[Rfam]
Small nucleolar RNA snoR60: a 73-nucleotide RNA sequence from Carpinus fangiana.
Its Rfam clan is "SNORD101 clan".
On this family, see Barneche et al., J Biol Chem 2000: "Fibrillarin genes encode both a conserved nucleolar protein and a novel small nucleolar RNA involved in ribosomal RNA methylation in Arabidopsis thaliana".
Rfam classes the family as a C/D-box small nucleolar RNA.
The source organism's lineage runs through Eukaryota, Streptophyta, Magnoliopsida, Betulaceae and Carpinus.
It scores 78 bits against the family's covariance model.
The family has 10 seed sequences and 1,133 matches in Rfam 15.1.

RNA sequence: AUGCAUAUGAUGAGUUAACUCGGAUUCCCCUUCAAGACGAAAUGGGUGAUGAAAGCUCGAGUUUUCUGAUGCG
Dot-bracket structure: .((((................................................................))))